[Rfam]
RNA sequence: GGGGCAUCGGUGAUGAGGAUGAUAAAAAUUGUUAUCCUUGCACUUUGAUUGCUACUGGCGGUGAAGAAAGUAAUGGGGAAUUUUUCUCUGAGGUGCUC
Number, nucleotide and partner (000 for none) at each position: 001g000002g098003g097004g096005c095006a094007u093008c092009g000010g000011u000012g000013a000014u000015g000016a000017g000018g000019a000020u000021g000022a000023u000024a000025a000026a000027a000028a000029u000030u000031g000032u000033u000034a000035u000036c000037c000038u000039u000040g000041c000042a000043c000044u000045u000046u000047g000048a000049u000050u000051g000052c000053u000054a000055c000056u000057g000058g000059c000060g000061g000062u000063g000064a000065a000066g000067a000068a000069a000070g000071u000072a000073a000074u000075g000076g000077g000078g000079a000080a000081u000082u000083u000084u000085u000086c000087u000088c000089u000090g000091a000092g008093g007094u006095g005096c004097u003098c002
RNA: Small nucleolar RNA snoR26
Organism: Citrus x clementina